Annotation:
Purine riboswitch aptamer: a 100-nucleotide RNA sequence from Shewanella gelidii. From the family's description: Riboswitches are metabolite binding domains within certain messenger RNAs that serve as precision sensors for their corresponding targets. The family's consensus secondary structure is taken from published work. The organism belongs to Shewanella, within Bacteria.
RNA sequence: UAUAAUCGAAGGCGUUUGCUUCGUAUAACCCCAAUGAUAUGGUUUGGGGGUCUCUACCAGCUCCCUUAAAGUGCUGAUUACGAAGAGUUGAGAUUAUUAU
Numbered sequence: 001u002a003u004a005a006u007c008g009a010a011g012g013c014g015u016u017u018g019c020u021u022c023g024u025a026u027a028a029c030c031c032c033a034a035u036g037a038u039a040u041g042g043u044u045u046g047g048g049g050g051u052c053u054c055u056a057c058c059a060g061c062u063c064c065c066u067u068a069a070a071g072u073g074c075u076g077a078u079u080a081c082g083a084a085g086a087g088u089u090g091a092g093a094u095u096a097u098u099a100u
Stems, first nucleotide, its partner, number of pairs: 019085007029049006058076004063071001